This 152-nucleotide sequence from Pythium oligandrum belongs to the Rfam family "U11 spliceosomal RNA". The organism belongs to Pythium, within Eukaryota. It is annotated as a spliceosomal small nuclear RNA. The match comes from Rfam's covariance-model search (58 bits).
RNA sequence: AAAAAGGGCAGGCCCUCUAAUGGGGCGCUUGUUCGCGCCUGCGUUCCGUGGGGUCCGCGGCAAGUGGUGAAUCGUGAUCACGAGAUUUGCCCUGCGUAAUUUCUCACCCGCUGGUUGAAUGGACUGCUCGGGUCAAUUCAGCCGGCAACCUG
Numbered sequence: 001a002a003a004a005a006g007g008g009c010a011g012g013c014c015c016u017c018u019a020a021u022g023g024g025g026c027g028c029u030u031g032u033u034c035g036c037g038c039c040u041g042c043g044u045u046c047c048g049u050g051g052g053g054u055c056c057g058c059g060g061c062a063a064g065u066g067g068u069g070a071a072u073c074g075u076g077a078u079c080a081c082g083a084g085a086u087u088u089g090c091c092c093u094g095c096g097u098a099a100u101u102u103c104u105c106a107c108c109c110g111c112u113g114g115u116u117g118a119a120u121g122g123a124c125u126g127c128u129c130g131g132g133u134c135a136a137u138u139c140a141g142c143c144g145g146c147a148a149c150c151u152g
Stems, first nucleotide, its partner, number of pairs: 008095005013025004026066007034059004067090007113150004120144003124141003
Rfam links the family to the GO terms mRNA 5'-splice site recognition, U11 snRNP and pre-mRNA 5'-splice site binding.